The family of this 99-nucleotide RNA sequence from Desemzia incerta is "Bacterial small signal recognition particle RNA". The match comes from Rfam's covariance-model search (59 bits).
[Rfam]
RNA sequence: GAAAGGCCAUAUAGCAAUGGUGGACUUAUGAAUCGUGUCAGGUCUGGAAGGAAGCAGCACUAAGUUUGCUUCACCAUGUGCUGUAUGUUACAUAGAAUA
Number, nucleotide and partner (000 for none) at each position: 001g000002a000003a000004a093005g000006g091007c000008c000009a086010u085011a084012u083013a082014g081015c078016a000017a077018u076019g075020g074021u073022g072023g000024a000025c068026u000027u000028a065029u064030g000031a000032a000033u000034c000035g060036u059037g058038u057039c000040a000041g000042g000043u052044c051045u050046g000047g000048a000049a000050g045051g044052a043053a000054g000055c000056a000057g038058c037059a036060c035061u000062a000063a000064g029065u028066u000067u000068g025069c000070u000071u000072c022073a021074c020075c019076a018077u017078g015079u000080g000081c014082u013083g012084u011085a010086u009087g000088u000089u000090a000091c006092a000093u004094a000095g000096a000097a000098u000099a000
By type it is a non-coding RNA gene. The organism belongs to Desemzia, within Bacteria. The base pairs follow the family's consensus structure, which is taken from published work. Rfam links the family to the GO terms signal recognition particle, plasma membrane targeting and SRP-dependent cotranslational protein targeting to membrane, signal sequence recognition.